RNA sequence: ACUCUUUCAAUUCAAUAAAACAGGUCCUAUAUAAGUCCUGCCGGCUUCGGUCGGCUAUGGUGAUAAACGGACGAUGCAAUAAGCCCAUUGGACCCGGGGGCGGUACCCGGCGCCUCCACCAAAACGCAGCAGAUCUCGCUGCUUUUUGGCGGGGGCGAAAUAGGAUCGACAAGGGUGUAAAGAUCGAACUUUUGCCCGGCAUUGUACCACCGUUAUCGGGCUAACUCUGUAGUUGCAAACGACAACUAUGCGGAAGCACGUCUCGCCGCUUAAUGCGGUGCGAUAGCUUCAAAUCAAGUCCUAGGGGUUCGCACUUCUAGGCGGGGUUCGGAGGCACCUGGCAACAGAAGCCUCCACU
Numbered sequence: 001a002c003u004c005u006u007u008c009a010a011u012u013c014a015a016u017a018a019a020a021c022a023g024g025u026c027c028u029a030u031a032u033a034a035g036u037c038c039u040g041c042c043g044g045c046u047u048c049g050g051u052c053g054g055c056u057a058u059g060g061u062g063a064u065a066a067a068c069g070g071a072c073g074a075u076g077c078a079a080u081a082a083g084c085c086c087a088u089u090g091g092a093c094c095c096g097g098g099g100g101c102g103g104u105a106c107c108c109g110g111c112g113c114c115u116c117c118a119c120c121a122a123a124a125c126g127c128a129g130c131a132g133a134u135c136u137c138g139c140u141g142c143u144u145u146u147u148g149g150c151g152g153g154g155g156c157g158a159a160a161u162a163g164g165a166u167c168g169a170c171a172a173g174g175g176u177g178u179a180a181a182g183a184u185c186g187a188a189c190u191u192u193u194g195c196c197c198g199g200c201a202u203u204g205u206a207c208c209a210c211c212g213u214u215a216u217c218g219g220g221c222u223a224a225c226u227c228u229g230u231a232g233u234u235g236c237a238a239a240c241g242a243c244a245a246c247u248a249u250g251c252g253g254a255a256g257c258a259c260g261u262c263u264c265g266c267c268g269c270u271u272a273a274u275g276c277g278g279u280g281c282g283a284u285a286g287c288u289u290c291a292a293a294u295c296a297a298g299u300c301c302u303a304g305g306g307g308u309u310c311g312c313a314c315u316u317c318u319a320g321g322c323g324g325g326g327u328u329c330g331g332a333g334g335c336a337c338c339u340g341g342c343a344a345c346a347g348a349a350g351c352c353u354c355c356a357c358u
Stems, first nucleotide, its partner, number of pairs: 040055005059196005069189001072186004084175003088172003094110005111157007197212003202223001204221001207219002324339004330355006

Shown here is a 358-nucleotide sequence from Phyllobacterium zundukense, a member of the family "Alphaproteobacteria transfer-messenger RNA".
It scores 309 bits against the family's covariance model.
Bacterial tmRNA, also known as 10Sa RNA or SsrA, is named for its dual tRNA and mRNA-like properties.